[Rfam]
RNA sequence: UUUUAGCCCCGAUAAUAGUGGAAAUCCUUUUUGUUUUUUUCUUUAAAAAACAAAAAGAUUGUAACGGAUAGCGGGAAUAGCU
Number, nucleotide and partner (000 for none) at each position: 001u000002u000003u000004u000005a000006g000007c000008c000009c074010c073011g072012a000013u070014a069015a000016u000017a000018g065019u064020g000021g000022a000023a060024a059025u058026c057027c000028u055029u054030u050031u049032u048033g000034u047035u046036u045037u000038u000039u000040u000041c000042u000043u000044u000045a036046a035047a034048a032049a031050a030051c000052a000053a000054a029055a028056a000057g026058a025059u024060u023061g000062u000063a000064a019065c018066g000067g000068a000069u014070a013071g000072c011073g010074g009075g000076a000077a000078u000079a000080g000081c000082u000
Description:
Flavo-1 RNA: an 82-nucleotide sequence from Flavobacterium psychrophilum. Pairs were carried over by alignment from the consensus structure, which is taken from published work. Lineage of the source: Bacteria > Flavobacteriia > Flavobacteriaceae > Flavobacterium > Flavobacterium psychrophilum. It is annotated as a small RNA.